[Rfam]
RNA sequence: GGAAGUUCUCAGGGCGGGGUGAAAGUCCCCACCGGCGGUAAUCGUGCUGAAUAAUAGUAAUCACGUAGCCCGCGGGCGCUUUUUUGACUCCUCAUGAGUUUAAGAAGAACAGCAGAUCUGGUGUGAUUCCGGAGCCGACAGUUAAAGUCUGGUUAUGAGAAUGAGG
Numbered sequence: 001g002g003a004a005g006u007u008c009u010c011a012g013g014g015c016g017g018g019g020u021g022a023a024a025g026u027c028c029c030c031a032c033c034g035g036c037g038g039u040a041a042u043c044g045u046g047c048u049g050a051a052u053a054a055u056a057g058u059a060a061u062c063a064c065g066u067a068g069c070c071c072g073c074g075g076g077c078g079c080u081u082u083u084u085u086g087a088c089u090c091c092u093c094a095u096g097a098g099u100u101u102a103a104g105a106a107g108a109a110c111a112g113c114a115g116a117u118c119u120g121g122u123g124u125g126a127u128u129c130c131g132g133a134g135c136c137g138a139c140a141g142u143u144a145a146a147g148u149c150u151g152g153u154u155a156u157g158a159g160a161a162u163g164a165g166g
Base pairs, nucleotide, nucleotide: 005162006161007160008159009158010157017029018028019027031148032147033137034136035073036072037071038070068135069134076113077112117133118132119131120130121129139151140150141149
Record summary:
Shown here is a 166-nucleotide RNA sequence from marine gamma proteobacterium HTCC2143, a member of the family "FMN riboswitch aptamer (RFN element)". Gene Ontology term of the family: FMN binding.